This 62-nucleotide RNA sequence from Oryctolagus cuniculus belongs to the Rfam family "U7 small nuclear RNA". The source organism's lineage runs through Eukaryota, Dipnotetrapodomorpha, Eutheria, Lagomorpha and Oryctolagus. It scores 41 bits against the family's covariance model.
RNA sequence: CCAUGUUACAUCUGUUUUCAAAUUUGUCUAGCAGGAUUUUUUAUUUUCACCAGAAAGCCCAC
Numbered sequence: 001c002c003a004u005g006u007u008a009c010a011u012c013u014g015u016u017u018u019c020a021a022a023u024u025u026g027u028c029u030a031g032c033a034g035g036a037u038u039u040u041u042u043a044u045u046u047u048c049a050c051c052a053g054a055a056a057g058c059c060c061a062c
Stems, first nucleotide, its partner, number of pairs: 034059002037056005044049001